Rfam assigns this 108-nucleotide RNA sequence from Ruminococcaceae bacterium BL-6 to the family "TPP riboswitch aptamer (THI element)". Gene Ontology term of the family: thiamine pyrophosphate binding. The base pairs follow the family's consensus structure, which is taken from published work.

RNA sequence: AGUCAACUGCAGGGGAGCCGGAAUCGACCGGCUGAGAGGAAGCUGUUGCUUCGACCCUUAUACCUGAUUUGGAUCAUGCCAACGGAGGGAAACAUUGAACUGCCGAAA
Numbered sequence: 001a002g003u004c005a006a007c008u009g010c011a012g013g014g015g016a017g018c019c020g021g022a023a024u025c026g027a028c029c030g031g032c033u034g035a036g037a038g039g040a041a042g043c044u045g046u047u048g049c050u051u052c053g054a055c056c057c058u059u060a061u062a063c064c065u066g067a068u069u070u071g072g073a074u075c076a077u078g079c080c081a082a083c084g085g086a087g088g089g090a091a092a093c094a095u096u097g098a099a100c101u102g103c104c105g106a107a108a
Stems, first nucleotide, its partner, number of pairs: 006096001008094002011058004017032005039052005063088003069082004